[Rfam]
RNA: Lysine riboswitch aptamer
Organism: Fusobacterium sp. FSA-380-WT-3A
Nucleotides: 174
Stems, first nucleotide, its partner, number of pairs: 006169003011164001016079005024071001032064008083114012115141002119137007144158006
Number, partner (000 for none) and nucleotide at each position: 001000g002000a003000a004000a005000c006169g007168g008167a009000u010000u011164g012000a013000g014000g015000a016079g017078c018077a019076a020075a021000u022000g023000a024071c025000a026000a027000a028000a029000g030000u031000a032064a033063u034062u035061a036060u037059g038058u039057u040000g041000a042000g043000u044000u045000a046000c047000c048000u049000a050000a051000c052000u053000u054000u055000g056000a057039g058038a059037u060036a061035u062034a063033a064032u065000g066000a067000a068000a069000g070000g071024g072000g073000a074000u075020u076019u077018u078017g079016c080000c081000g082000a083114a084113a085112u086111c087110u088109a089108a090107a091106a092105a093104u094103u095000a096000u097000a098000g099000g100000g101000a102000g103094g104093a105092u106091u107090u108089u109088u110087a111086g112085g113084u114083u115141g116140g117000g118000a119137a120136u121135a122134u123133g124132g125131a126000g127000a128000a129000u130000a131125u132124c133123c134122a135121u136120a137119u138000a139000a140116c141115u142000g143000u144158c145157a146156u147155u148154g149153a150000u151000a152000u153149u154148c155147a156146a157145u158144g159000u160000u161000g162000u163000g164011c165000u166000u167008u168007c169006u170000g171000u172000u173000g174000u